[Rfam]
RNA sequence: UUUUUAGUAGAGGUAUAUACCAUGCAAUGUUUGGAAUAUACUUCUACUAAAA
Numbered sequence: 001u002u003u004u005u006a007g008u009a010g011a012g013g014u015a016u017a018u019a020c021c022a023u024g025c026a027a028u029g030u031u032u033g034g035a036a037u038a039u040a041c042u043u044c045u046a047c048u049a050a051a052a
Stems, first nucleotide, its partner, number of pairs: 006048007014040003018036001020034002022031001

The family of this 52-nucleotide RNA sequence from Camelus dromedarius is "mir-1302 microRNA precursor family". Taxonomically the source falls in Camelus (Eukaryota, Metazoa, Dipnotetrapodomorpha, Tetrapoda). The literature on the family includes a 2008 paper in Genome Res by Morin et al., "Application of massively parallel sequencing to microRNA profiling and discovery in human embryonic stem cells". It scores 66 bits against the family's covariance model. The family has 24 seed sequences and 16,160 matches in Rfam 15.1. Pairs were carried over by alignment from the consensus structure, which was predicted with WAR.